RNA sequence: GAGUUCCUUCGAGUAACGUUGCGGAGCCACGAUCGGAGUUCUCAGUGACUCUCAUGCUCUGAGGAAAGUCCCUGGACAUUGGGCAGAAAGUGUCGUAGCAUUGUUUACGCUAUUAGCCUCUCGUCAUCUUUCUUCGAAUUUUUGAGACAGGAAGCUUCGGCAGAUCUUUUCGAGUUAGGACGGGAAGUGUAUUGGUCAAAGAAAAGUAAUGCGUCGAGACGAAAAUUCUCUAAUCCCAAUCCCCCCAGAGGAGAAAGGAAGUGAGAAAAUUUGUCCAACUAAACAGGGCUUACUACGAAGGGAAA
Numbered sequence: 001g002a003g004u005u006c007c008u009u010c011g012a013g014u015a016a017c018g019u020u021g022c023g024g025a026g027c028c029a030c031g032a033u034c035g036g037a038g039u040u041c042u043c044a045g046u047g048a049c050u051c052u053c054a055u056g057c058u059c060u061g062a063g064g065a066a067a068g069u070c071c072c073u074g075g076a077c078a079u080u081g082g083g084c085a086g087a088a089a090g091u092g093u094c095g096u097a098g099c100a101u102u103g104u105u106u107a108c109g110c111u112a113u114u115a116g117c118c119u120c121u122c123g124u125c126a127u128c129u130u131u132c133u134u135c136g137a138a139u140u141u142u143u144g145a146g147a148c149a150g151g152a153a154g155c156u157u158c159g160g161c162a163g164a165u166c167u168u169u170u171c172g173a174g175u176u177a178g179g180a181c182g183g184g185a186a187g188u189g190u191a192u193u194g195g196u197c198a199a200a201g202a203a204a205a206g207u208a209a210u211g212c213g214u215c216g217a218g219a220c221g222a223a224a225a226u227u228c229u230c231u232a233a234u235c236c237c238a239a240u241c242c243c244c245c246c247a248g249a250g251g252a253g254a255a256a257g258g259a260a261g262u263g264a265g266a267a268a269a270u271u272u273g274u275c276c277a278a279c280u281a282a283a284c285a286g287g288g289c290u291u292a293c294u295a296c297g298a299a300g301g302g303a304a305a
Base pairs, nucleotide, nucleotide: 004304005303006302007301008299009298010297011296014216016214017213018212019211022061023060024059025058026057027056036051037050038049039048040047066291067290068289070288071287072286073285082094083093084092085091095113096112097111098110099109116188117187122182123181124180125179127177131174133172144168145167146166147165154161155160218275219274220273221272222271223270
Description:
Shown here is a 305-nucleotide sequence from Heterotrigona itama, a member of the family "RNase MRP". Lineage of the source: Eukaryota > Panarthropoda > Arthropoda > Apoidea > Heterotrigona. A reference for the family is Schmitt et al. (1993), "Secondary structure of RNase MRP RNA as predicted by phylogenetic comparison", FASEB J. RNase MRP is an enzymatically active ribonucleoprotein with two distinct roles in eukaryotes. The match comes from Rfam's covariance-model search (100 bits).